[Rfam]
RNA: Small nucleolar RNA U109
Nucleotides: 145
Stems, first nucleotide, its partner, number of pairs: 003070006025052001027050006083138004095125002099121001100119007
Number, partner (000 for none) and nucleotide at each position: 001000c002000u003070g004069c005068a006067u007066g008065u009000u010000u011000c012000a013000a014000a015000a016000a017000a018000a019000c020000a021000c022000a023000a024000u025052u026000c027050u028049g029048c030047u031046c032045c033000u034000u035000a036000u037000u038000c039000c040000c041000u042000u043000a044000a045032g046031g047030a048029g049028c050027a051000u052025g053000a054000a055000u056000a057000u058000a059000u060000c061000u062000a063000u064000a065008a066007c067006a068005u069004g070003c071000u072000a073000c074000a075000g076000a077000a078000a079000a080000c081000a082000a083138g084137g085136a086135g087000u088000c089000u090000u091000c092000a093000g094000g095125g096124c097000u098000g099121c100119c101118a102117g103116u104115c105114u106113u107000c108000a109000a110000g111000u112000a113106a114105a115104g116103g117102c118101u119100g120000a121099g122000u123000g124096g125095u126000a127000g128000u129000a130000u131000a132000u133000g134000c135086c136085u137084c138083c139000u140000a141000c142000a143000u144000u145000c